About this RNA:
Rfam assigns this 478-nucleotide RNA from Thelephora terrestris to the family "Nuclear RNase P". Rfam 15.1 lists 3,848 matches to the family in 1,862 species. NCBI's taxonomy places the organism under Eukaryota, Opisthokonta, Dikarya, Basidiomycota, Thelephora.
RNA sequence: ACAGCUCAAAAACCGCGAUACUCAUCACGCACACGAGCGGUCCAACCGCCUCGUUUUUCAUGAGUGGGAAGGUCUGAGAAAAUAGUCCAUUUGUCAAGACCCGGUCGAGACGACCCAGGUACCAACGUACCUAACGGCAAACAUGAAAAUCGGCAGCUUUCCUGUUUACCCCGAAGAAAUGUGUUUCCGCCGGUUUUAACUGGCGGUAACUAUCGUAGAGGGAGGUGGAAAGCAGCCUUGAAAUAUUGCCGUGGACUUUGGGUGAGCCUUUCCGCUUCCGAUGUCGAUCAAAUCAUCUAGGCCCCCACGUCGCGCGGGUCUCAAUGGUAGCGCAUAUGCUGCCUCCGCUGCGAAGGGGGCCAUGGUUUGGUCCCGACGCGGUCGUCUGGUGGGUUCGCCCUUUAGUGCAAUUCGCGGUGCGCGUUUGGGGGCUUCGCGCCUUCGACGUGUAACUCGAUUCAGACUAUUCUUGGACUGU
Numbered sequence: 001a002c003a004g005c006u007c008a009a010a011a012a013c014c015g016c017g018a019u020a021c022u023c024a025u026c027a028c029g030c031a032c033a034c035g036a037g038c039g040g041u042c043c044a045a046c047c048g049c050c051u052c053g054u055u056u057u058u059c060a061u062g063a064g065u066g067g068g069a070a071g072g073u074c075u076g077a078g079a080a081a082a083u084a085g086u087c088c089a090u091u092u093g094u095c096a097a098g099a100c101c102c103g104g105u106c107g108a109g110a111c112g113a114c115c116c117a118g119g120u121a122c123c124a125a126c127g128u129a130c131c132u133a134a135c136g137g138c139a140a141a142c143a144u145g146a147a148a149a150u151c152g153g154c155a156g157c158u159u160u161c162c163u164g165u166u167u168a169c170c171c172c173g174a175a176g177a178a179a180u181g182u183g184u185u186u187c188c189g190c191c192g193g194u195u196u197u198a199a200c201u202g203g204c205g206g207u208a209a210c211u212a213u214c215g216u217a218g219a220g221g222g223a224g225g226u227g228g229a230a231a232g233c234a235g236c237c238u239u240g241a242a243a244u245a246u247u248g249c250c251g252u253g254g255a256c257u258u259u260g261g262g263u264g265a266g267c268c269u270u271u272c273c274g275c276u277u278c279c280g281a282u283g284u285c286g287a288u289c290a291a292a293u294c295a296u297c298u299a300g301g302c303c304c305c306c307a308c309g310u311c312g313c314g315c316g317g318g319u320c321u322c323a324a325u326g327g328u329a330g331c332g333c334a335u336a337u338g339c340u341g342c343c344u345c346c347g348c349u350g351c352g353a354a355g356g357g358g359g360c361c362a363u364g365g366u367u368u369g370g371u372c373c374c375g376a377c378g379c380g381g382u383c384g385u386c387u388g389g390u391g392g393g394u395u396c397g398c399c400c401u402u403u404a405g406u407g408c409a410a411u412u413c414g415c416g417g418u419g420c421g422c423g424u425u426u427g428g429g430g431g432c433u434u435c436g437c438g439c440c441u442u443c444g445a446c447g448u449g450u451a452a453c454u455c456g457a458u459u460c461a462g463a464c465u466a467u468u469c470u471u472g473g474a475c476u477g478u
Stems, first nucleotide, its partner, number of pairs: 001478004007472003012418007020065005035052003038048003074462005085256004103115004117132006134252007152237003419450007
A search with the family's covariance model found it, with a score of 87 bits. Rfam classes the family as a ribozyme. The family is grouped with related families in Rfam's "RNaseP clan".